A member of the RNA family "tRNA" from Asanoa hainanensis, 74 nucleotides long. The source organism's lineage runs through Bacteria, Bacillati, Actinomycetota, Micromonosporales and Asanoa. Pairs were carried over by alignment from the consensus structure, which is taken from published work. Rfam describes the family as follows. Transfer RNA (tRNA) molecules are approximately 80 nucleotides in length. Their secondary structure includes four short double-helical elements and three loops (D, anti-codon, and T loops). Further hydrogen bonds mediate the characteristic L-shaped molecular structure. tRNAs have two regions of fundamental functional importance: the anti-codon, which is responsible for specific mRNA codon recognition, and the 3' end, to which the tRNAs corresponding amino acid is attached (by aminoacyl-tRNA synthetases). tRNAs cope with the degeneracy of the genetic code in two manners: having more than one tRNA (with a specific anti-codon) for a particular amino acid; and 'wobble' base-pairing, i.e. permitting non-standard base-pairing at the 3rd anti-codon position.
[Rfam]
RNA sequence: GGGCCGUUGGAGCAGCUGGCUAGCUCGUCGCGUUCUCAGCGCGAAGAUCAGGGGUUCGAGCCCCCUACGGCCCA
Numbered sequence: 001g002g003g004c005c006g007u008u009g010g011a012g013c014a015g016c017u018g019g020c021u022a023g024c025u026c027g028u029c030g031c032g033u034u035c036u037c038a039g040c041g042c043g044a045a046g047a048u049c050a051g052g053g054g055u056u057c058g059a060g061c062c063c064c065c066u067a068c069g070g071c072c073c074a
Stems, first nucleotide, its partner, number of pairs: 001073007010026004028044005050066005